[Rfam]
RNA sequence: ACUCAACAGGAAUUAAUUCUGAAGGAUGAGUCAUAAUUGUUAAAGCAAGCCGUCUUGAACGGAUCCUUGAUCAGUUAGUUAAUCCUAUAUAUGUAUAAAUUGGAGUUU
Number, nucleotide and partner (000 for none) at each position: 001a000002c000003u000004c000005a000006a000007c000008a000009g000010g000011a000012a000013u000014u000015a000016a000017u000018u000019c000020u000021g000022a000023a086024g085025g084026a083027u082028g000029a000030g000031u000032c000033a000034u077035a076036a075037u074038u073039g000040u000041u000042a000043a068044a067045g066046c000047a000048a000049g000050c062051c061052g060053u059054c000055u000056u000057g000058a000059a053060c052061g051062g050063a000064u000065c000066c045067u044068u043069g000070a000071u000072c000073a038074g037075u036076u035077a034078g000079u000080u000081a000082a027083u026084c025085c024086u023087a000088u000089a000090u000091a000092u000093g000094u000095a000096u000097a000098a000099a000100u000101u000102g000103g000104a000105g000106u000107u000108u000

The family of this 108-nucleotide RNA sequence from Urechidicola croceus is "6S-Flavo RNA".
The source organism's lineage runs through Bacteria, Bacteroidota, Flavobacteriales, Flavobacteriaceae and Urechidicola.
Pairs were carried over by alignment from the consensus structure, which is taken from published work.
The match comes from Rfam's covariance-model search (99 bits).